[Rfam]
The family of this 107-nucleotide RNA is "Group II catalytic intron D1-D4-1". The base pairs follow the family's consensus structure.
RNA sequence: CGCCUUGUGCCUGAAAGGGCAACGGUGUUGAGCCGGAGCGAGAAGUCAGCAGAGGCCGUAGUAGCUGGGUGGUGUGGCCGGGAAGGCUAAAGCUGCCUGUGAAGGGC
Numbered sequence: 001c002g003c004c005u006u007g008u009g010c011c012u013g014a015a016a017g018g019g020c021a022a023c024g025g026u027g028u029u030g031a032g033c034c035g036g037a038g039c040g041a042g043a044a045g046u047c048a049g050c051a052g053a054g055g056c057c058g059u060a061g062u063a064g065c066u067g068g069g070u071g072g073u074g075u076g077g078c079c080g081g082g083a084a085g086g087c088u089a090a091a092g093c094u095g096c097c098u099g100u101g102a103a104g105g106g107c
Stems, first nucleotide, its partner, number of pairs: 001030002005024001008021005046053002055107003064100002067097002